[Rfam]
RNA sequence: CCAGCCGCUGGAUCAGGGCUGGCCUUGCUGGGAGCGCCGUCUUUCGGCGCCCCGUACCCAUGUUGCUUCAAGGAGGAUAUGGUUAUGGCAA
Numbered sequence: 001c002c003a004g005c006c007g008c009u010g011g012a013u014c015a016g017g018g019c020u021g022g023c024c025u026u027g028c029u030g031g032g033a034g035c036g037c038c039g040u041c042u043u044u045c046g047g048c049g050c051c052c053c054g055u056a057c058c059c060a061u062g063u064u065g066c067u068u069c070a071a072g073g074a075g076g077a078u079a080u081g082g083u084u085a086u087g088g089c090a091a
Stems, first nucleotide, its partner, number of pairs: 001022006008016002031051001034050006052088005058082007066075003
The family of this 91-nucleotide RNA sequence from Shinella sp. WSJ-2 is "Repression of heat shock gene expression (ROSE) element". This family represents a 5' UTR cis-regulatory element found in heat shock mRNAs and is known as the ROSE (repression of heat shock gene expression) element. The ROSE element is a negative regulator of heat shock gene expression. The secondary structure is thought to be regulated by temperature. The family has 13 seed sequences and 381 matches in Rfam 15.1. Pairs were carried over by alignment from the consensus structure, which is taken from published work. Rfam classes the family as an RNA thermoregulator. NCBI's taxonomy places the organism under Bacteria, Pseudomonadati, Pseudomonadota, Rhizobiaceae, Shinella. The literature on the family includes a 2001 paper in Nucleic Acids Res by Nocker et al., "A mRNA-based thermosensor controls expression of rhizobial heat shock genes".